[Rfam]
RNA sequence: CGUCGGUCCCCUCGCGACGAUAGAUCGAAAACUCCGCCAGGUCCGGAAGGAAGCAACGGUAUCGGUCGAUUCGGGUGCCGAGGUCAGGCUGGCGGGG
Numbered sequence: 001c002g003u004c005g006g007u008c009c010c011c012u013c014g015c016g017a018c019g020a021u022a023g024a025u026c027g028a029a030a031a032c033u034c035c036g037c038c039a040g041g042u043c044c045g046g047a048a049g050g051a052a053g054c055a056a057c058g059g060u061a062u063c064g065g066u067c068g069a070u071u072c073g074g075g076u077g078c079c080g081a082g083g084u085c086a087g088g089c090u091g092g093c094g095g096g097g
Base pairs, nucleotide, nucleotide: 004091005090006089007088008087010083011082012081013080014079015075018073019072020071023067024066025065026064027063028062034059035058036057042051043050044049
RNA: Bacterial small signal recognition particle RNA